This 177-nucleotide RNA from Deinococcus budaensis belongs to the Rfam family "glmS glucosamine-6-phosphate activated ribozyme aptamer".
Lineage of the source: Bacteria > Deinococcota > Deinococci > Deinococcaceae > Deinococcus.
RNA sequence: AGCAACAGGGCAGCGCAAGGUCUGCUCCCCAGGGGGGCAGAAGACGAGGUGGAGGUCAGCGAAAGCGUUCUGCGGAUGCCUCCAGGUCCCGGCACGGGCCUACCCGACCGCUCACGCGGUGAAGCGCGGCGAUAAGCUUUUGCGGCGACGCAGAGAUAAGGCCGCGCGGUGCGAGAC
Dot-bracket structure: ....................(((((((.(...).))))))).........(((((.....((......))........)))))........................................(((((((.......(((((((....))))))).....)))))))..........